Source information:
Shown here is a 114-nucleotide RNA from Physeter macrocephalus, a member of the family "mir-2513 microRNA precursor family". Gene Ontology terms of the family: miRNA-mediated post-transcriptional gene silencing and RISC complex. A search with the family's covariance model found it, with a score of 92 bits. NCBI's taxonomy places the organism under Eukaryota, Opisthokonta, Metazoa, Physeteridae, Physeter.
RNA sequence: AGAGAAAGCCCCCGUGCAGCAAUGAAGACCCAAUGCAGCCCAAAAUAAAUAAAUAAAUUUAUUUAUUUAUUUUGGGCUGCAUUGGGUCUUCAUUGCUGCACGGGGGCUUUCUCU
Numbered sequence: 001a002g003a004g005a006a007a008g009c010c011c012c013c014g015u016g017c018a019g020c021a022a023u024g025a026a027g028a029c030c031c032a033a034u035g036c037a038g039c040c041c042a043a044a045a046u047a048a049a050u051a052a053a054u055a056a057a058u059u060u061a062u063u064u065a066u067u068u069a070u071u072u073u074g075g076g077c078u079g080c081a082u083u084g085g086g087u088c089u090u091c092a093u094u095g096c097u098g099c100a101c102g103g104g105g106g107c108u109u110u111c112u113c114u
Base pairs, nucleotide, nucleotide: 001114002113003112004111005110006109007108008107009106010105011104012103013102014101015100016099017098018097019096020095021094022093023092024091025090026089027088028087030085031084033082034081035080036079037078038077039076040075041074042073043072044071045070046069047068